[Rfam]
RNA sequence: GGCCGGUGAUGCAUUGAGAAUUGUCCGUACCAUCUGAGAAUUUCUUUGAUGUAUAAAGUUCUGCUAUUUCUGAGGUCU
Numbered sequence: 001g002g003c004c005g006g007u008g009a010u011g012c013a014u015u016g017a018g019a020a021u022u023g024u025c026c027g028u029a030c031c032a033u034c035u036g037a038g039a040a041u042u043u044c045u046u047u048g049a050u051g052u053a054u055a056a057a058g059u060u061c062u063g064c065u066a067u068u069u070c071u072g073a074g075g076u077c078u
Stems, first nucleotide, its partner, number of pairs: 001077004
Record summary
Shown here is a 78-nucleotide RNA, a member of the family "small nucleolar RNA snoR117". Its family is annotated with RNA processing and nucleolus in the Gene Ontology. Rfam classes the family as a C/D-box small nucleolar RNA. On this family, see Chen and Wu, Nucleic Acids Res 2009: "Mining small RNA sequencing data: a new approach to identify small nucleolar RNAs in Arabidopsis".